[Rfam]
RNA sequence: AGCCUUUGAUGCAAAGUAUAAGAGUAGUGGACAGAACUGAUUUCUGAAAUUUACUUAUUCUGAGGCU
Numbered sequence: 001a002g003c004c005u006u007u008g009a010u011g012c013a014a015a016g017u018a019u020a021a022g023a024g025u026a027g028u029g030g031a032c033a034g035a036a037c038u039g040a041u042u043u044c045u046g047a048a049a050u051u052u053a054c055u056u057a058u059u060c061u062g063a064g065g066c067u
Stems, first nucleotide, its partner, number of pairs: 001067006